The family of this 164-nucleotide sequence from Piliocolobus tephrosceles is "U1 spliceosomal RNA". The base pairs follow the family's consensus structure, which is taken from published work. The source organism's lineage runs through Eukaryota, Vertebrata, Sarcopterygii, Dipnotetrapodomorpha and Piliocolobus. Gene Ontology terms of the family: pre-mRNA 5'-splice site binding, mRNA 5'-splice site recognition and U1 snRNP. It scores 118 bits against the family's covariance model.
[Rfam]
Nucleotides: 164
Stems, first nucleotide, its partner, number of pairs: 012122004016048006023042005049090001052087001054086001056083003060079003064075001092117003095113003099109001138162003143158001146155003
Number, partner (000 for none) and nucleotide at each position: 001000a002000u003000a004000c005000u006000u007000c008000c009000c010000u011000g012122g013121u014120a015119g016048g017047g018046g019045a020044a021043a022000u023042a024041c025040c026039a027038u028000g029000a030000u031000c032000g033000u034000g035000a036000a037000a038027g039026u040025g041024g042023u043021u044020u045019u046018u047017c048016u049090a050000c051000a052087g053000u054086g055000a056083g057082g058081c059000u060079u061078a062077u063000c064075u065000a066000u067000u068000g069000u070000a071000c072000u073000u074000c075064g076000a077062a078061u079060g080000u081058g082057c083056u084000g085000a086054u087052c088000c089000c090049u091000g092117c093116g094115a095113u096112u097111u098000c099109c100000u101000c102000a103000a104000a105000u106000a107000c108000u109099g110000g111097a112096a113095a114000c115094u116093c117092g118000a119015c120014u121013g122012c123000a124000u125000a126000a127000u128000u129000u130000g131000u132000g133000g134000u135000a136000g137000u138162g139161g140160g141000a142000a143158a144000c145000u146155g147154c148153g149000u150000u151000c152000g153148c154147g155146c156000u157000u158143u159000c160140c161139c162138c163000u164000g